[Rfam]
RNA sequence: GUAAAUUGUUAGUAAAGGGCACGCUCUAUCUGAAGGAAACCUGGUAACAGUGAGCGUCUCACAGAUAGCUACCGUCCCUGAGCGAAACUAUCAAAUUGCCGGAAACCCCUAAAGCCCAAGGUACCGCAGGAGGCGCGAAAGCGGCUCUGCAGCAGCAUGUUAAAAGGCAUGUGGAUGGUAAAAACCCAAGGGAUAAAAAUUCUUCUAUUUUGAAAUCAUUGAAGGGUGCUUCCUUCUUAAGAUCCAGGCAUACAAGGUUAUCAUGGUGGUUACUCUGGCCACCUUUAAGCAAGAAGAGUAUUUGCUCCCUGAUAACUGGAUCAUGAAUGAGAAGAUAGUUGAACGUGCUAGAAUUAAUUUUUCAGCCCUGUAAAAGCAGGAAUGGGCAAUCGGCAGCCAAGGCACCUGGAUGAGACUCUUAGAGUAUCUGAUGCUGCAGUUCACAGACUAAAUGGUAGUUGGUGGGCUCAAUAUGCAACAUUUGGACGAUCAAGGAUCGUUGAGUAUGGAACCUAAAAGAUCAUUGCAGUGGUAAAAACUAACACUUCUAUGAGAGUUAACCUUAAGGCUUCGUUGAUGUUAAAAGCUUUCUCAACAAGGAGUGAGAAAUGAGGAAGGUUUGCAUCUUCGAAAGAGGCGAUUACAUCCGGGUAUUAUCUCCAAUACUCUCGAGGGCUAAUCGCAGUUAAACUCGAAUUAAUGAGGGACCAGCUGCAUCGUCUUUCAAGUUAUUUAAGGUGUACGAUCGGGGUAGGACAGACCCGACAUCAGCUUAGAUAAUAGGUAACCGCAAUUUAGGGGCAACCCUAUCCAUUUGUAUAAUUAUUGAGGCUGCUUAAGAUAUAGUCGACAGACGCCCGAAAAGGUAGU
Numbered sequence: 001g002u003a004a005a006u007u008g009u010u011a012g013u014a015a016a017g018g019g020c021a022c023g024c025u026c027u028a029u030c031u032g033a034a035g036g037a038a039a040c041c042u043g044g045u046a047a048c049a050g051u052g053a054g055c056g057u058c059u060c061a062c063a064g065a066u067a068g069c070u071a072c073c074g075u076c077c078c079u080g081a082g083c084g085a086a087a088c089u090a091u092c093a094a095a096u097u098g099c100c101g102g103a104a105a106c107c108c109c110u111a112a113a114g115c116c117c118a119a120g121g122u123a124c125c126g127c128a129g130g131a132g133g134c135g136c137g138a139a140a141g142c143g144g145c146u147c148u149g150c151a152g153c154a155g156c157a158u159g160u161u162a163a164a165a166g167g168c169a170u171g172u173g174g175a176u177g178g179u180a181a182a183a184a185c186c187c188a189a190g191g192g193a194u195a196a197a198a199a200u201u202c203u204u205c206u207a208u209u210u211u212g213a214a215a216u217c218a219u220u221g222a223a224g225g226g227u228g229c230u231u232c233c234u235u236c237u238u239a240a241g242a243u244c245c246a247g248g249c250a251u252a253c254a255a256g257g258u259u260a261u262c263a264u265g266g267u268g269g270u271u272a273c274u275c276u277g278g279c280c281a282c283c284u285u286u287a288a289g290c291a292a293g294a295a296g297a298g299u300a301u302u303u304g305c306u307c308c309c310u311g312a313u314a315a316c317u318g319g320a321u322c323a324u325g326a327a328u329g330a331g332a333a334g335a336u337a338g339u340u341g342a343a344c345g346u347g348c349u350a351g352a353a354u355u356a357a358u359u360u361u362u363c364a365g366c367c368c369u370g371u372a373a374a375a376g377c378a379g380g381a382a383u384g385g386g387c388a389a390u391c392g393g394c395a396g397c398c399a400a401g402g403c404a405c406c407u408g409g410a411u412g413a414g415a416c417u418c419u420u421a422g423a424g425u426a427u428c429u430g431a432u433g434c435u436g437c438a439g440u441u442c443a444c445a446g447a448c449u450a451a452a453u454g455g456u457a458g459u460u461g462g463u464g465g466g467c468u469c470a471a472u473a474u475g476c477a478a479c480a481u482u483u484g485g486a487c488g489a490u491c492a493a494g495g496a497u498c499g500u501u502g503a504g505u506a507u508g509g510a511a512c513c514u515a516a517a518a519g520a521u522c523a524u525u526g527c528a529g530u531g532g533u534a535a536a537a538a539c540u541a542a543c544a545c546u547u548c549u550a551u552g553a554g555a556g557u558u559a560a561c562c563u564u565a566a567g568g569c570u571u572c573g574u575u576g577a578u579g580u581u582a583a584a585a586g587c588u589u590u591c592u593c594a595a596c597a598a599g600g601a602g603u604g605a606g607a608a609a610u611g612a613g614g615a616a617g618g619u620u621u622g623c624a625u626c627u628u629c630g631a632a633a634g635a636g637g638c639g640a641u642u643a644c645a646u647c648c649g650g651g652u653a654u655u656a657u658c659u660c661c662a663a664u665a666c667u668c669u670c671g672a673g674g675g676c677u678a679a680u681c682g683c684a685g686u687u688a689a690a691c692u693c694g695a696a697u698u699a700a701u702g703a704g705g706g707a708c709c710a711g712c713u714g715c716a717u718c719g720u721c722u723u724u725c726a727a728g729u730u731a732u733u734u735a736a737g738g739u740g741u742a743c744g745a746u747c748g749g750g751g752u753a754g755g756a757c758a759g760a761c762c763c764g765a766c767a768u769c770a771g772c773u774u775a776g777a778u779a780a781u782a783g784g785u786a787a788c789c790g791c792a793a794u795u796u797a798g799g800g801g802c803a804a805c806c807c808u809a810u811c812c813a814u815u816u817g818u819a820u821a822a823u824u825a826u827u828g829a830g831g832c833u834g835c836u837u838a839a840g841a842u843a844u845a846g847u848c849g850a851c852a853g854a855c856g857c858c859c860g861a862a863a864a865g866g867u868a869g870u
Stems, first nucleotide, its partner, number of pairs: 086460005092454002097395006107386003396440002401435004409428004444849001446848005462835004467830007856867003

Shown here is an 870-nucleotide sequence from Gigaspora rosea, a member of the family "Group I catalytic intron".
Rfam describes the family as follows. Group I catalytic introns are large self-splicing ribozymes. They catalyse their own excision from mRNA, tRNA and rRNA precursors in a wide range of organisms. The core secondary structure consists of 9 paired regions (P1-P9).
The literature on the family includes a 1990 paper in Annu Rev Biochem by Cech, "Self-splicing of group I introns".